[Rfam]
RNA sequence: UGGGCAGGGGGGUCUUCGCUCAUCGGCGAAGCCUGUCCAGCAAGGUUGUGCGUGAUGCGUGUCAGGCGCGACCAGUGGUUGUCGCUCGGGGGUGAUCGCCG
Number, nucleotide and partner (000 for none) at each position: 001u039002g038003g037004g036005c035006a034007g033008g032009g000010g000011g000012g000013u000014c031015u030016u029017c028018g027019c026020u025021c000022a000023u000024c000025g020026g019027c018028g017029a016030a015031g014032c008033c007034u006035g005036u004037c003038c002039a001040g000041c000042a000043a000044g073045g072046u071047u070048g069049u068050g067051c066052g000053u000054g000055a000056u000057g000058c000059g000060u000061g000062u000063c000064a000065g000066g051067c050068g049069c048070g047071a046072c045073c044074a000075g000076u000077g000078g000079u000080u000081g000082u000083c000084g000085c000086u000087c000088g000089g000090g000091g000092g000093u000094g000095a000096u000097c000098g000099c000100c000101g000

Shown here is a 101-nucleotide RNA from Streptomyces zinciresistens, a member of the family "che1 RNA". Rfam's curators put it in the seed alignment. Lineage of the source: Bacteria > Actinomycetes > Streptomycetaceae > Streptomyces > Streptomyces zinciresistens. The base pairs follow the family's consensus structure, which is taken from published work.